[Rfam]
RNA sequence: GAUGGCAGAUGAUGCACAAUCUUAUCCUACACUCCGAAAUUUAUUUAGUGUGGACAAAACUCCGCUUAUUGUCUGAUGCCUCC
Numbered sequence: 001g002a003u004g005g006c007a008g009a010u011g012a013u014g015c016a017c018a019a020u021c022u023u024a025u026c027c028u029a030c031a032c033u034c035c036g037a038a039a040u041u042u043a044u045u046u047a048g049u050g051u052g053g054a055c056a057a058a059a060c061u062c063c064g065c066u067u068a069u070u071g072u073c074u075g076a077u078g079c080c081u082c083c
Stems, first nucleotide, its partner, number of pairs: 004080004
This 83-nucleotide sequence from Spirodela intermedia belongs to the Rfam family "Small nucleolar RNA R16". The literature on the family includes a 2002 paper in Mol Cell Biol by Galardi et al., "Purified box C/D snoRNPs are able to reproduce site-specific 2'-O-methylation of target RNA in vitro". Rfam classes the family as a C/D-box small nucleolar RNA. The family's consensus secondary structure was predicted with PFOLD.